[Rfam]
RNA sequence: AGUUCCUAUGUUAGGAGGGCGAAUCCGCCGAAUUUAAGCAUAUAAUUAAGCGGAAGAAAAGAAAAUAACUAUGAUUCCUUUAGUAACGGCGAGUGAACAAGGAGUAGCUCAAAAGGAAAAUCCCAGAGUUUGUGCAAGCUUACUUUGGGAAUUGUCAUGUGGAGUAUUAUUCCAAAUAAAUGAUUUAGUUCUUUUUAAGCGAAGUGAGCAGGAAAGCUCCCCCUAAGAGGGUGAAAGGCCCGUAGUUUAAUAACUUGCCAUUUUCUUGGAAUUUUACUUGAAGAGUCGUGUUCUUUGAGAUUGGAGCACAAAUGCGUGUGAUACAUUUCACAUAAAGCUAAAUAUGUGUAGGAGACCGAUAGCAAACAAGUACCGUGAGGGAAAGAUGAAAUAGUACUCAGGAAUGAGCCAUUAAAUAGUACCUGAAAUCGUUAAGAUGGAAC
Numbered sequence: 001a002g003u004u005c006c007u008a009u010g011u012u013a014g015g016a017g018g019g020c021g022a023a024u025c026c027g028c029c030g031a032a033u034u035u036a037a038g039c040a041u042a043u044a045a046u047u048a049a050g051c052g053g054a055a056g057a058a059a060a061g062a063a064a065a066u067a068a069c070u071a072u073g074a075u076u077c078c079u080u081u082a083g084u085a086a087c088g089g090c091g092a093g094u095g096a097a098c099a100a101g102g103a104g105u106a107g108c109u110c111a112a113a114a115g116g117a118a119a120a121u122c123c124c125a126g127a128g129u130u131u132g133u134g135c136a137a138g139c140u141u142a143c144u145u146u147g148g149g150a151a152u153u154g155u156c157a158u159g160u161g162g163a164g165u166a167u168u169a170u171u172c173c174a175a176a177u178a179a180a181u182g183a184u185u186u187a188g189u190u191c192u193u194u195u196u197a198a199g200c201g202a203a204g205u206g207a208g209c210a211g212g213a214a215a216g217c218u219c220c221c222c223c224u225a226a227g228a229g230g231g232u233g234a235a236a237g238g239c240c241c242g243u244a245g246u247u248u249a250a251u252a253a254c255u256u257g258c259c260a261u262u263u264u265c266u267u268g269g270a271a272u273u274u275u276a277c278u279u280g281a282a283g284a285g286u287c288g289u290g291u292u293c294u295u296u297g298a299g300a301u302u303g304g305a306g307c308a309c310a311a312a313u314g315c316g317u318g319u320g321a322u323a324c325a326u327u328u329c330a331c332a333u334a335a336a337g338c339u340a341a342a343u344a345u346g347u348g349u350a351g352g353a354g355a356c357c358g359a360u361a362g363c364a365a366a367c368a369a370g371u372a373c374c375g376u377g378a379g380g381g382a383a384a385g386a387u388g389a390a391a392u393a394g395u396a397c398u399c400a401g402g403a404a405u406g407a408g409c410c411a412u413u414a415a416a417u418a419g420u421a422c423c424u425g426a427a428a429u430c431g432u433u434a435a436g437a438u439g440g441a442a443c
Base pairs, nucleotide, nucleotide: 024055025053026052027051028050035042036041065072066071076103077102078101079100080099086094087093106339107338108337109336113158115156116155118153119152121150122149123148124147125146126145127144128143129142164277165276166274171270172269173268174267186260188258189257193252195250196249197248198247199246204220206219207218208217209216223227230240231239288309289308290307291306292305293304294303316333317332318331319330320329373380374379397408398407399406400405

This 443-nucleotide part of an RNA from Plasmodium knowlesi belongs to the Rfam family "Eukaryotic large subunit ribosomal RNA". Lineage of the source: Eukaryota > Aconoidasida > Plasmodium > Plasmodium > Plasmodium knowlesi. Rfam's curators put it in the seed alignment.